RNA sequence: UUCCACAGGUACUGGUCUGGAACUGUUGAGAACCAUAGCAGUUCCAGUAUUCCCUCUGUGGAAAAUAAACUGUUAUGCAGCAUCAAGCUCCUUCUCAGAUCCUCUGAAAAGGACCUCCUACGUAACAAACAACU
Numbered sequence: 001u002u003c004c005a006c007a008g009g010u011a012c013u014g015g016u017c018u019g020g021a022a023c024u025g026u027u028g029a030g031a032a033c034c035a036u037a038g039c040a041g042u043u044c045c046a047g048u049a050u051u052c053c054c055u056c057u058g059u060g061g062a063a064a065a066u067a068a069a070c071u072g073u074u075a076u077g078c079a080g081c082a083u084c085a086a087g088c089u090c091c092u093u094c095u096c097a098g099a100u101c102c103u104c105u106g107a108a109a110a111g112g113a114c115c116u117c118c119u120a121c122g123u124a125a126c127a128a129a130c131a132a133c134u
Stems, first nucleotide, its partner, number of pairs: 003061004017047009075123003079119001089113005095107002

Rfam assigns this 134-nucleotide RNA sequence from Heliornis fulica to the family "Small nucleolar RNA SNORA41". On this family, see Huttenhofer et al., EMBO J 2001: "RNomics: an experimental approach that identifies 201 candidates for novel, small, non-messenger RNAs in mouse". The family has 31 seed sequences and 676 matches in Rfam 15.1. Rfam classes the family as an H/ACA-box small nucleolar RNA. NCBI's taxonomy places the organism under Eukaryota, Eumetazoa, Vertebrata, Theropoda, Heliornis. From the family's description: ACA41 is a member of the H/ACA class of snoRNA that guide the sites of modification of uridines to pseudouridines. Rfam links the family to the GO terms nucleolus and RNA processing.